The record is a 101-nucleotide sequence from Orenia marismortui, which matches "Purine riboswitch aptamer" in Rfam. NCBI's taxonomy places the organism under Bacteria, Bacillati, Bacillota, Halanaerobiales, Orenia.
RNA sequence: GAAAAUUAUAGAAUAAAAUUUCGUAUAUUAUCGGGAAUAGGGCUCGAAAGUUUCUACCAAGUGGCCAUAACCACUUGACUACGAAAUAUUGAUAUUUCUGA
Number, nucleotide and partner (000 for none) at each position: 001g000002a000003a000004a000005a000006u000007u000008a000009u000010a000011g000012a000013a000014u000015a000016a000017a000018a087019u086020u085021u084022c083023g082024u081025a080026u000027a000028u000029u049030a000031u047032c046033g045034g044035g043036a000037a000038u000039a000040g000041g000042g000043c035044u034045c033046g032047a031048a000049a029050g000051u000052u000053u000054c000055u000056a000057c000058c077059a076060a075061g074062u073063g072064g071065c000066c000067a000068u000069a000070a000071c064072c063073a062074c061075u060076u059077g058078a000079c000080u025081a024082c023083g022084a021085a020086a019087u018088a000089u000090u000091g000092a000093u000094a000095u000096u000097u000098c000099u000100g000101a000